[Rfam]
RNA sequence: AUGCUCCUAGUGUUGUGUUAAGUGUUGGCAGAUAGCCGGGUGGGCCGAAAGGCGCCCCGGCAUUGAACCCCCGGACCUUCCUCCUCCCCCACGUGAAGGCCGGGGCUUUUUUUCGCCUGCGC
Numbered sequence: 001a002u003g004c005u006c007c008u009a010g011u012g013u014u015g016u017g018u019u020a021a022g023u024g025u026u027g028g029c030a031g032a033u034a035g036c037c038g039g040g041u042g043g044g045c046c047g048a049a050a051g052g053c054g055c056c057c058c059g060g061c062a063u064u065g066a067a068c069c070c071c072c073g074g075a076c077c078u079u080c081c082u083c084c085u086c087c088c089c090c091a092c093g094u095g096a097a098g099g100c101c102g103g104g105g106c107u108u109u110u111u112u113u114c115g116c117c118u119g120c121g122c
Base pairs, nucleotide, nucleotide: 035061036060037059038058039057040056065109066108067107069105070104071103072102073101074100076099077098078097079096080095

The record is a 122-nucleotide RNA sequence from Pseudomonas sp. URIL14HWK12:I9, which matches "Pseudomon-1/ErsA RNA" in Rfam. It is annotated as a small RNA. From the family's description: Functions to regulate the AlgC enzyme. Based on this information, the new name ErsA for the RNA was adopted. Negatively regulates major porin oprD expression responsible for uptake of carbapenem antibiotics, by base pairing with oprD 5'UTR (leading to increased bacterial resistance to meropenem).Positively regulates amrZ mRNA and contributes to biofilm formation and motility. On this family, see Ferrara et al., Environ Microbiol 2015: "Post-transcriptional regulation of the virulence-associated enzyme AlgC by the sigma(22) -dependent small RNA ErsA of Pseudomonas aeruginosa".